[Rfam]
RNA: Eukaryotic large subunit ribosomal RNA, nucleotides 1 to 415
Organism: Dendroctonus ponderosae
RNA sequence: AGGCCUGAAUUUAGGGAAGAUUACCCGCUGAAUUUAAGCAUAUUAUUAAGCGGAGGAAAAGAAACUAACAAGGAUUCCCUUAGUAACGGCGAGUGAAGAGGGAAAAGCUCAAAUUGAAAAUCGACAGUUUUGCCGUCGAAUUGUAGUCUCCUGAACUAUGGCCAGUAGUGGCUGCAGGACAAGUCUCUAGGAAUAGAGCUCCAAAGAGGGUAAAAGUCCCGUCUUCCUGCAGACAACUACAUACGGUCAAAUUUCAUAGAGUCGCGUUUCUUGCAAUUGAAGCGCAAAGUGGGUGAUAAACUUCAUCUAAAGCUAAAUAUCAGCAAGAGACCGAUAGCGAAGAAGUACCGUGAGGGAAAGAUGAAAAGAACCCUGGGAAGGGAGUUAAAAGGAACUGAAAUUGCUAAAAGGAAAG
Dot-bracket structure: .......................((((((.....((....))......))))).).........((....))...(((((.....((.....))....)))))..((((...((((.((.(((((.(.....).))))).)).)))).....(((.(..((((.(((((.(.(((((((...(.((((......)))))..(...)..((.......)).....)))))))..).)))))....)))).).).))........(((((((........))))))).....(((((........)))))..)))).................................((....))...............((((....)))).................................